[Rfam]
RNA sequence: ACGACCUGUGCGGGAGAGCCUCGAUCGGCACGCGAUCGGGCACCGAAGGAGCAAGCCUCCCCGCCAAUCUCUCAGGUACGCGUACCGCGCAGGCCGG
Numbered sequence: 001a002c003g004a005c006c007u008g009u010g011c012g013g014g015a016g017a018g019c020c021u022c023g024a025u026c027g028g029c030a031c032g033c034g035a036u037c038g039g040g041c042a043c044c045g046a047a048g049g050a051g052c053a054a055g056c057c058u059c060c061c062c063g064c065c066a067a068u069c070u071c072u073c074a075g076g077u078a079c080g081c082g083u084a085c086c087g088c089g090c091a092g093g094c095c096g097g
Base pairs, nucleotide, nucleotide: 006092007091008090009089010088011087012086013085020040021039022038023037024036025035026034027033042077043076044075045073046072049071050070051069055064056063
RNA: Glycine riboswitch aptamer